[Rfam]
RNA sequence: CAACCAUUUCGCCUUCGGGCUAAGAUUGGUUGUAGUAUCUGUUCUAGAUGGCUUGAUAGGUCAUCUCCUUUCUCCUAUCAACAAUUUUUUGGGGCAGGCGGGGGACACCAAGCUUGCUUGGCCCCCGCCAGUGUCGCCUCUGCCUUUGCACUAACCGCAGAGGAGGGCACAGCCCA
Numbered sequence: 001c002a003a004c005c006a007u008u009u010c011g012c013c014u015u016c017g018g019g020c021u022a023a024g025a026u027u028g029g030u031u032g033u034a035g036u037a038u039c040u041g042u043u044c045u046a047g048a049u050g051g052c053u054u055g056a057u058a059g060g061u062c063a064u065c066u067c068c069u070u071u072c073u074c075c076u077a078u079c080a081a082c083a084a085u086u087u088u089u090u091g092g093g094g095c096a097g098g099c100g101g102g103g104g105a106c107a108c109c110a111a112g113c114u115u116g117c118u119u120g121g122c123c124c125c126c127g128c129c130a131g132u133g134u135c136g137c138c139u140c141u142g143c144c145u146u147u148g149c150a151c152u153a154a155c156c157g158c159a160g161a162g163g164a165g166g167g168c169a170c171a172g173c174c175c176a
Stems, first nucleotide, its partner, number of pairs: 007025003011020003046066006097129008109120004132169004139161005